[Rfam]
RNA sequence: GGUGGUCAUCAAGAGUUGGGUCGACGCCCACACCAACCUGCCGUUCCGGGCAAGGUGGUUUUGCGAAAGCAGAUGUGGCCCACAUCCGGGCAACGAAGCGGAAGCUG
Number, nucleotide and partner (000 for none) at each position: 001g000002g000003u000004g000005g000006u000007c075008a074009u073010c072011a000012a000013g000014a000015g031016u000017u030018g029019g028020g027021u026022c000023g000024a000025c000026g021027c020028c019029c018030a017031c015032a059033c058034c057035a000036a000037c055038c054039u053040g051041c050042c049043g000044u103045u102046c101047c100048g099049g042050g041051c040052a000053a039054g038055g037056u000057g034058g033059u032060u000061u000062u000063g000064c000065g000066a000067a000068a000069g000070c000071a000072g010073a009074u008075g007076u000077g000078g091079c090080c089081c088082a000083c000084a000085u000086c000087c000088g081089g080090g079091c078092a000093a000094c000095g000096a000097a000098g000099c048100g047101g046102a045103a044104g000105c000106u000107g000

Notes:
The record is a 107-nucleotide RNA sequence from Sphingobium sp. TKS, which matches "SAM-I/IV (S-adenosyl methionine) riboswitch aptamer" in Rfam. The family's consensus secondary structure is taken from published work. It scores 63 bits against the family's covariance model. Rfam links the family to the GO terms regulation of gene expression and S-adenosylmethionine metabolic process. For this family Rfam cites "Structural basis for diversity in the SAM clan of riboswitches" (Trausch et al., PNAS, 2014).